[Rfam]
RNA: R2 RNA element
RNA sequence: AAUUAGAAAAAAUCAAAUAGACAUUUUAUUCUGGGCCCUGAAAUAAUGUCCAAUACAUCUGGUUCCAGGGAACUAAUGUGAAGAGAGAGAGAGGUUGGGUUUCAGUGGGUCUGGAUGUUCUGGUAUCUGGACAUUAAUCCCACACUCCCAAUUGUACUUAAAGGUUUUUUUUUUGCAACGGGUGUCUUUGGAAGAUUUCCCCUCUCCACAA
Numbered sequence: 001a002a003u004u005a006g007a008a009a010a011a012a013u014c015a016a017a018u019a020g021a022c023a024u025u026u027u028a029u030u031c032u033g034g035g036c037c038c039u040g041a042a043a044u045a046a047u048g049u050c051c052a053a054u055a056c057a058u059c060u061g062g063u064u065c066c067a068g069g070g071a072a073c074u075a076a077u078g079u080g081a082a083g084a085g086a087g088a089g090a091g092a093g094g095u096u097g098g099g100u101u102u103c104a105g106u107g108g109g110u111c112u113g114g115a116u117g118u119u120c121u122g123g124u125a126u127c128u129g130g131a132c133a134u135u136a137a138u139c140c141c142a143c144a145c146u147c148c149c150a151a152u153u154g155u156a157c158u159u160a161a162a163g164g165u166u167u168u169u170u171u172u173u174u175g176c177a178a179c180g181g182g183u184g185u186c187u188u189u190g191g192a193a194g195a196u197u198u199c200c201c202c203u204c205u206c207c208a209c210a211a
Base pairs, nucleotide, nucleotide: 036070037069038068039067077210078209079208080207090205091204092203093202094201097200098199105143106142107141108140109139114135115134116133117132118131119130120129122127145184147182148181149180